RNA sequence: CCUUCAAAGAGUUGUAUCAAACAAAAUAGAUUGCUAUUUAUAGUUUUCAAAAUUGAACUUGUAGAACAAGGAA
Numbered sequence: 001c002c003u004u005c006a007a008a009g010a011g012u013u014g015u016a017u018c019a020a021a022c023a024a025a026a027u028a029g030a031u032u033g034c035u036a037u038u039u040a041u042a043g044u045u046u047u048c049a050a051a052a053u054u055g056a057a058c059u060u061g062u063a064g065a066a067c068a069a070g071g072a073a
Base pairs, nucleotide, nucleotide: 001071002070003069004068009060010059011058012057013056022055023054024053029048030047034043035042
The family of this 73-nucleotide RNA sequence is "RAGATH-18 RNA". Actinobacteria, Firmicutes, Fusobacteria, Thermotogae (1 example).